[Rfam]
RNA sequence: CAGCGGCGCAUGAUUAGCACCGCAGUCUGAAAGUUGGCUCGUCCCCCGCCGCUUCAGACUUCAGGACAAAGGCCUUAUCCCCCCUCUCCGGGCCUUUGUCCCCUGUUACGAAAAGUCGUCACGGCGCCGCCUCCAGCCGUGACGACUUUUU
Numbered sequence: 001c002a003g004c005g006g007c008g009c010a011u012g013a014u015u016a017g018c019a020c021c022g023c024a025g026u027c028u029g030a031a032a033g034u035u036g037g038c039u040c041g042u043c044c045c046c047c048g049c050c051g052c053u054u055c056a057g058a059c060u061u062c063a064g065g066a067c068a069a070a071g072g073c074c075u076u077a078u079c080c081c082c083c084c085u086c087u088c089c090g091g092g093c094c095u096u097u098g099u100c101c102c103c104u105g106u107u108a109c110g111a112a113a114a115g116u117c118g119u120c121a122c123g124g125c126g127c128c129g130c131c132u133c134c135a136g137c138c139g140u141g142a143c144g145a146c147u148u149u150u151u
Stems, first nucleotide, its partner, number of pairs: 026058006036050003064101011113147001116145010
Background:
A member of the RNA family "Alphaproteobacterial sRNA ar7" from Gillisella ampelina, 151 nucleotides long. It is annotated as a small RNA. A reference for the family is del Val et al. (2012), "A survey of sRNA families in alpha-proteobacteria", RNA Biol.